[Rfam]
RNA sequence: GAUAAAUGAAUAUGGAUACCGUAGACCGUAGGUGCCCACGCAAAUAGCGUGCGAGCUUAAUCUCCUACCGAGGUGUGUGGAUAGAUUAUUUUUUAAUCAUGUCAUGCCUCCGCGAUGUCUGCGGGGGCAUUUCUUAUGUCCCCGG
Numbered sequence: 001g002a003u004a005a006a007u008g009a010a011u012a013u014g015g016a017u018a019c020c021g022u023a024g025a026c027c028g029u030a031g032g033u034g035c036c037c038a039c040g041c042a043a044a045u046a047g048c049g050u051g052c053g054a055g056c057u058u059a060a061u062c063u064c065c066u067a068c069c070g071a072g073g074u075g076u077g078u079g080g081a082u083a084g085a086u087u088a089u090u091u092u093u094u095a096a097u098c099a100u101g102u103c104a105u106g107c108c109u110c111c112g113c114g115a116u117g118u119c120u121g122c123g124g125g126g127g128c129a130u131u132u133c134u135u136a137u138g139u140c141c142c143c144g145g
Stems, first nucleotide, its partner, number of pairs: 028068005034056002104130010
Dot-bracket structure: ...........................(((((.((...................)).......)))))...................................((((((((((.......))))))))))...............
Rfam assigns this 145-nucleotide sequence from Cohnella luojiensis to the family "Ribosomal protein L10 leader". Gene Ontology term of the family: regulation of gene expression. This family is a putative r-protein leader autoregulatory structure found in B. subtilis and other low-GC Gram-positive bacteria.